[Rfam]
RNA sequence: UGACGGGGGCCCGCACAAGCGGUGGAGUAUGUGGUUUAAUUCGAUGCAACGCGAAGAACCUUACCAGGGCUUGACAUGUCCGGAACCUCUGUGAAAGCAGAGGGUGCCUUCGGGAGCCGGAACACAGGUGGUGCAUGGCUGUCGUCAGCUCGUGUCGUGAGAUGUUGGGUUAAGUCCCGCAACGAGCGCAACCCUCGUCCUUAGUUGCCAGCAUUUUGGAUGGGCACUCUAGGGAGACUGCCGGUGACAAACCGGAGGAAGGUGGGGAUGACGUCAAGUCAGCAUGCCCCUUACGUCCUGGGCGACACACGUACUACAAUGCUGUGGACAAAGAGCAGCCAACCCGCGAGGGCGAGCUAAUCUCAUAAACCACGGCUCAGUUCAGAUCGCAGGCUGCAACUCGCCUGCGUGAAGGCGGAAUCGCUAGUAAUCGCCGGUCAGCAUACGGCGGUGAAUCCGUUCCCGGGCCUUGUACACACCGCCCGUCACACCAUGGGAGCUGGCCACGCCCGAAGUCGUUACUCCAACCGUUCGCGGAGGAGGACGCCGAAGGCAGGGCUGGUGACUGGGGUGAAGUCGUAACAAGG
Numbered sequence: 001u002g003a004c005g006g007g008g009g010c011c012c013g014c015a016c017a018a019g020c021g022g023u024g025g026a027g028u029a030u031g032u033g034g035u036u037u038a039a040u041u042c043g044a045u046g047c048a049a050c051g052c053g054a055a056g057a058a059c060c061u062u063a064c065c066a067g068g069g070c071u072u073g074a075c076a077u078g079u080c081c082g083g084a085a086c087c088u089c090u091g092u093g094a095a096a097g098c099a100g101a102g103g104g105u106g107c108c109u110u111c112g113g114g115a116g117c118c119g120g121a122a123c124a125c126a127g128g129u130g131g132u133g134c135a136u137g138g139c140u141g142u143c144g145u146c147a148g149c150u151c152g153u154g155u156c157g158u159g160a161g162a163u164g165u166u167g168g169g170u171u172a173a174g175u176c177c178c179g180c181a182a183c184g185a186g187c188g189c190a191a192c193c194c195u196c197g198u199c200c201u202u203a204g205u206u207g208c209c210a211g212c213a214u215u216u217u218g219g220a221u222g223g224g225c226a227c228u229c230u231a232g233g234g235a236g237a238c239u240g241c242c243g244g245u246g247a248c249a250a251a252c253c254g255g256a257g258g259a260a261g262g263u264g265g266g267g268a269u270g271a272c273g274u275c276a277a278g279u280c281a282g283c284a285u286g287c288c289c290c291u292u293a294c295g296u297c298c299u300g301g302g303c304g305a306c307a308c309a310c311g312u313a314c315u316a317c318a319a320u321g322c323u324g325u326g327g328a329c330a331a332a333g334a335g336c337a338g339c340c341a342a343c344c345c346g347c348g349a350g351g352g353c354g355a356g357c358u359a360a361u362c363u364c365a366u367a368a369a370c371c372a373c374g375g376c377u378c379a380g381u382u383c384a385g386a387u388c389g390c391a392g393g394c395u396g397c398a399a400c401u402c403g404c405c406u407g408c409g410u411g412a413a414g415g416c417g418g419a420a421u422c423g424c425u426a427g428u429a430a431u432c433g434c435c436g437g438u439c440a441g442c443a444u445a446c447g448g449c450g451g452u453g454a455a456u457c458c459g460u461u462c463c464c465g466g467g468c469c470u471u472g473u474a475c476a477c478a479c480c481g482c483c484c485g486u487c488a489c490a491c492c493a494u495g496g497g498a499g500c501u502g503g504c505c506a507c508g509c510c511c512g513a514a515g516u517c518g519u520u521a522c523u524c525c526a527a528c529c530g531u532u533c534g535c536g537g538a539g540g541a542g543g544a545c546g547c548c549g550a551a552g553g554c555a556g557g558g559c560u561g562g563u564g565a566c567u568g569g570g571g572u573g574a575a576g577u578c579g580u581a582a583c584a585a586g587g
Base pairs, nucleotide, nucleotide: 001476002475003473004472005471007470008469009468010467011466012465013464015460016459019424020423021422022421023420024317026315027314028313029312030311031310032309033308034306035305040055041054042053043052064301065300066299067298068297069296070295077124078123079121080120081119082118083117086103087102088101089100090099091098092097105116107114108113127290128289130288131287132286133285136284137283138279139278140277141275143273144272148187149186150185151184152183153182154163155162156161166179167178168177169176193267194266195265196264198235199234200233201232202231203230204229208224209223212222213221214220238258239257241255242254243253244252245251321376322375323374324373325372326371327370333364334363335362338357339356343352344351345350383414388409389408390407391406392405393404394403430452431451432450433449434448435447436446479586481583484579485578489573490572491571492570494568495567496566499563500562501561502560503559504558505557508554509553510552515548517546518545519544520543522542523541524540525539528537529536